The family of this 416-nucleotide RNA sequence from Parafrankia sp. EAN1pec is "Bacterial RNase P class A". On this family, see Frank and Pace, Annu Rev Biochem 1998: "Ribonuclease P: unity and diversity in a tRNA processing ribozyme". About the family: Ribonuclease P (RNase P) is a ubiquitous endoribonuclease, found in archaea, bacteria and eukarya as well as chloroplasts and mitochondria.
RNA sequence: CGAGUUGGCCGGACGGUCGCGUCGGUACCGGGGCGCGAGCCCGGGUGCCGCCGAGGAACGUCCGGGCUCCACAGGGCGGGGUGGUGGGUAACGCCCACCCGGGGUGACCCGCGGGACAGUGCCACAGAGAACAGACCGCCGGUGCCGUCAUGGCGCCGGUAAGGGUGAAACGGUGCGGUAAGAGCGCACCAGCGCCCGGGGUGACCCGGGCGGCUAGGUAAACCCCACCCGGAGCAAGGCCAAGAGGCCCCGGCCGGUCACGGUCGCGGGCUGCGCAGGCGUCCGAGGGCUGCUCGCCCGAGCCUGCGGGUAGGCCGCUGGAGGCCGUCGGCAACGGCGGUCCUAGAUAGAUGACCGUCACCGGCAAGCCGCGAGGCGACCCGGAACAGAACCCGGCGUACAGGCCAACUCGUCCG
Numbered sequence: 001c002g003a004g005u006u007g008g009c010c011g012g013a014c015g016g017u018c019g020c021g022u023c024g025g026u027a028c029c030g031g032g033g034c035g036c037g038a039g040c041c042c043g044g045g046u047g048c049c050g051c052c053g054a055g056g057a058a059c060g061u062c063c064g065g066g067c068u069c070c071a072c073a074g075g076g077c078g079g080g081g082u083g084g085u086g087g088g089u090a091a092c093g094c095c096c097a098c099c100c101g102g103g104g105u106g107a108c109c110c111g112c113g114g115g116a117c118a119g120u121g122c123c124a125c126a127g128a129g130a131a132c133a134g135a136c137c138g139c140c141g142g143u144g145c146c147g148u149c150a151u152g153g154c155g156c157c158g159g160u161a162a163g164g165g166u167g168a169a170a171c172g173g174u175g176c177g178g179u180a181a182g183a184g185c186g187c188a189c190c191a192g193c194g195c196c197c198g199g200g201g202u203g204a205c206c207c208g209g210g211c212g213g214c215u216a217g218g219u220a221a222a223c224c225c226c227a228c229c230c231g232g233a234g235c236a237a238g239g240c241c242a243a244g245a246g247g248c249c250c251c252g253g254c255c256g257g258u259c260a261c262g263g264u265c266g267c268g269g270g271c272u273g274c275g276c277a278g279g280c281g282u283c284c285g286a287g288g289g290c291u292g293c294u295c296g297c298c299c300g301a302g303c304c305u306g307c308g309g310g311u312a313g314g315c316c317g318c319u320g321g322a323g324g325c326c327g328u329c330g331g332c333a334a335c336g337g338c339g340g341u342c343c344u345a346g347a348u349a350g351a352u353g354a355c356c357g358u359c360a361c362c363g364g365c366a367a368g369c370c371g372c373g374a375g376g377c378g379a380c381c382c383g384g385a386a387c388a389g390a391a392c393c394c395g396g397c398g399u400a401c402a403g404g405c406c407a408a409c410u411c412g413u414c415c416g
Base pairs, nucleotide, nucleotide: 001412002411003410004409005408006407007406008405009404010403011401012359013358014357015356016355017354018353020053021052023050024049025048026047027046028045058399059398060397062396063395064394065393066392067234068233069232070231074295075294076293077292079230080229081228082227083226084098085097086096087095088094099113100111101110102109103108114225115224119223120222121219122218123217136164137163138160139159140158141157142156143155144154145153146152172190173189174188175187176186177185192214193212194211195210196209197208198207199206200205238316239315240314241313275307276306277305278304279303280302287299288298289297290296323342324341325340326339327338328337329336330335
It is annotated as a ribozyme. It is one of the family's seed sequences.